[Rfam]
RNA sequence: AACAGAGUAGGGCCAAGCGUUAAGUGUUGUGGAAUGGGAUGUCGUCCACAGACGAAGUCUGCCGUUAGAUAGAGGCAGACGCGGUGCAGGCUCGCAUCCGCUGAU
Number, nucleotide and partner (000 for none) at each position: 001a105002a000003c103004a102005g101006a000007g000008u000009a000010g093011g092012g091013c090014c089015a000016a000017g085018c083019g082020u081021u000022a000023a000024g053025u052026g000027u051028u050029g049030u048031g047032g046033a045034a000035u000036g000037g099038g098039a097040u096041g095042u000043c000044g000045u033046c032047c031048a030049c029050a028051g027052a025053c024054g000055a000056a000057g080058u079059c078060u077061g076062c075063c074064g000065u000066u000067a000068g000069a000070u000071a000072g000073a000074g063075g062076c061077a060078g059079a058080c057081g020082c019083g018084g000085u017086g000087c000088a000089g014090g013091c012092u011093c010094g000095c041096a040097u039098c038099c037100g000101c005102u004103g003104a000105u001

About this RNA
Shown here is a 105-nucleotide RNA from Lactococcus termiticola, a member of the family "THF (Tetrahydrofolate) riboswitch aptamer". Rfam 15.1 lists 747 matches to the family in 747 species. A reference for the family is Ames et al. (2010), "A eubacterial riboswitch class that senses the coenzyme tetrahydrofolate", Chem Biol.